[Rfam]
A member of the RNA family "Small nucleolar RNA SNORA72" from Mustela putorius, 128 nucleotides long. A reference for the family is Ganot et al. (1997), "The family of box ACA small nucleolar RNAs is defined by an evolutionarily conserved secondary structure and ubiquitous sequence elements essential for RNA accumulation", Genes Dev. By type it is an H/ACA-box small nucleolar RNA. Gene Ontology terms of the family: RNA processing and nucleolus.

RNA sequence: CUGCAAAUUAUUCUUGCUUUUCUCAUUUUGUAACAAUCAGUUCAACAUUUGCUGUAUUAAGACCAUGCAUGUGUUCCCAGACCUAAUUCUUUCCCUAGGUCUGAUUUUAUAAACUGCUGGUGAUAAAA
Numbered sequence: 001c002u003g004c005a006a007a008u009u010a011u012u013c014u015u016g017c018u019u020u021u022c023u024c025a026u027u028u029u030g031u032a033a034c035a036a037u038c039a040g041u042u043c044a045a046c047a048u049u050u051g052c053u054g055u056a057u058u059a060a061g062a063c064c065a066u067g068c069a070u071g072u073g074u075u076c077c078c079a080g081a082c083c084u085a086a087u088u089c090u091u092u093c094c095c096u097a098g099g100u101c102u103g104a105u106u107u108u109a110u111a112a113a114c115u116g117c118u119g120g121u122g123a124u125a126a127a128a
Stems, first nucleotide, its partner, number of pairs: 003052003022040002025037003062121004067117002078103008